Background: Rfam assigns this 65-nucleotide RNA to the family "MAT2A 3'UTR stem loop A".

RNA sequence: CCCUUUUUUCCCCAGACUUGUUGGCGUAGGCUACAGAGAAGCCUUCAAGCUCUGAGGGAAAGGGC
Numbered sequence: 001c002c003c004u005u006u007u008u009u010c011c012c013c014a015g016a017c018u019u020g021u022u023g024g025c026g027u028a029g030g031c032u033a034c035a036g037a038g039a040a041g042c043c044u045u046c047a048a049g050c051u052c053u054g055a056g057g058g059a060a061a062g063g064g065c
Stems, first nucleotide, its partner, number of pairs: 002064003008059004013054004019047002023043003026034002

The base pairs follow the family's consensus structure, which is taken from published work. Rfam classes the family as a cis-regulatory element. On this family, see Parker et al., Genome Res 2011: "New families of human regulatory RNA structures identified by comparative analysis of vertebrate genomes".